RNA: Bacterial RNase P class B
Organism: Alkalibacterium kapii
RNA sequence: CAUCACGGAUGAUCGCGCAGUUUUUAAACUGUGAGGAAAGUCCAUGCUCACACAAGCUGCGAUGCUUGUAGUGUUCGUGCGCAGCGAAAAAAUAAGCUGCGGCUCCCAGGAAUGGGAUGACGGCAGGAAAAAGAGCUAAGGGGAGAACCUAUGCUUGAGUACCCUUGAAAGUGCCACAGUGACGAAGCAGACCUGGAAACGUGUCUGGUGGAACGCGGUAAACCCCUCGAGUGAGCAACCCAAACUUUGGUCGGGGCACUUUUCUCCUGGAAAUGAACAGAGAGAAGAGGCAGAGCAUUUAUGCUCGUGCAGACAGAUGAUCAUCUCGGAUGAGGCUUACCGCCUUGUCUAGACAGAACAUGGCUUACAGUG
Numbered sequence: 001c002a003u004c005a006c007g008g009a010u011g012a013u014c015g016c017g018c019a020g021u022u023u024u025u026a027a028a029c030u031g032u033g034a035g036g037a038a039a040g041u042c043c044a045u046g047c048u049c050a051c052a053c054a055a056g057c058u059g060c061g062a063u064g065c066u067u068g069u070a071g072u073g074u075u076c077g078u079g080c081g082c083a084g085c086g087a088a089a090a091a092a093u094a095a096g097c098u099g100c101g102g103c104u105c106c107c108a109g110g111a112a113u114g115g116g117a118u119g120a121c122g123g124c125a126g127g128a129a130a131a132a133g134a135g136c137u138a139a140g141g142g143g144a145g146a147a148c149c150u151a152u153g154c155u156u157g158a159g160u161a162c163c164c165u166u167g168a169a170a171g172u173g174c175c176a177c178a179g180u181g182a183c184g185a186a187g188c189a190g191a192c193c194u195g196g197a198a199a200c201g202u203g204u205c206u207g208g209u210g211g212a213a214c215g216c217g218g219u220a221a222a223c224c225c226c227u228c229g230a231g232u233g234a235g236c237a238a239c240c241c242a243a244a245c246u247u248u249g250g251u252c253g254g255g256g257c258a259c260u261u262u263u264c265u266c267c268u269g270g271a272a273a274u275g276a277a278c279a280g281a282g283a284g285a286a287g288a289g290g291c292a293g294a295g296c297a298u299u300u301a302u303g304c305u306c307g308u309g310c311a312g313a314c315a316g317a318u319g320a321u322c323a324u325c326u327c328g329g330a331u332g333a334g335g336c337u338u339a340c341c342g343c344c345u346u347g348u349c350u351a352g353a354c355a356g357a358a359c360a361u362g363g364c365u366u367a368c369a370g371u372g
Base pairs, nucleotide, nucleotide: 004372005371006370007368008325009324010323011322012321013320014319016033017032018031019030020029021028038366039365040364042363043362044361045360046359047235048234049233050232051231052069053068054067055066056065057064075230076229077228079226080101081100082099083098084097085096102121103119104117105116106115107114108113122225123224125165126164127163133156134155135154136153140150141149142148171223172222173219174218175217188207189206190205191204192203194201195200239255240254241253259289260288261287262286263285264284265283290310291309292308293306294305295304296303297302328350329349330348331347332346333345334344335343336342